Rfam assigns this 79-nucleotide RNA sequence from Neotoma lepida to the family "mir-1301 microRNA precursor family".
RNA sequence: GGAUUGUGGGGGGUCACUCUAGGCACUGCUGCACUGUGCUGGGGAUGUUGCAGCUGCCUGGAGUGAUUUCACACAGCCC
Dot-bracket structure: ((.(((((.(((((((((((((((((.((.(((((.......)).))).)).).)))))))))))))))).))))).))
Numbered sequence: 001g002g003a004u005u006g007u008g009g010g011g012g013g014u015c016a017c018u019c020u021a022g023g024c025a026c027u028g029c030u031g032c033a034c035u036g037u038g039c040u041g042g043g044g045a046u047g048u049u050g051c052a053g054c055u056g057c058c059u060g061g062a063g064u065g066a067u068u069u070c071a072c073a074c075a076g077c078c079c
Stems, first nucleotide, its partner, number of pairs: 001079002004076005010070016026053001028051002031048003034044002

Annotation
Rfam links the family to the GO terms miRNA-mediated post-transcriptional gene silencing and RISC complex.